[Rfam]
The record is a 133-nucleotide sequence from Asarcornis scutulata, which matches "Small nucleolar RNA SNORA3/SNORA45 family" in Rfam. The family's consensus secondary structure was predicted with RNAalifold. A reference for the family is Huttenhofer et al. (2001), "RNomics: an experimental approach that identifies 201 candidates for novel, small, non-messenger RNAs in mouse", EMBO J. The family's RNA type in Rfam is H/ACA-box small nucleolar RNA.
RNA sequence: UCCGAGAGUAGAGUCACAUCUUUACACUUGCGAUUGUUCUGGUGUGCUAUCGUUCUCGGACAUUAUACUUCUGAUCCACAUUCACUGGCUGCGAUGCUUCAUAUCUCAGUCAGCCACCAAAUCAGUGACACUA
Numbered sequence: 001u002c003c004g005a006g007a008g009u010a011g012a013g014u015c016a017c018a019u020c021u022u023u024a025c026a027c028u029u030g031c032g033a034u035u036g037u038u039c040u041g042g043u044g045u046g047c048u049a050u051c052g053u054u055c056u057c058g059g060a061c062a063u064u065a066u067a068c069u070u071c072u073g074a075u076c077c078a079c080a081u082u083c084a085c086u087g088g089c090u091g092c093g094a095u096g097c098u099u100c101a102u103a104u105c106u107c108a109g110u111c112a113g114c115c116a117c118c119a120a121a122u123c124a125g126u127g128a129c130a131c132u133a
Stems, first nucleotide, its partner, number of pairs: 002059005007053001012048002015046006024037003071125005085113004090108002093105003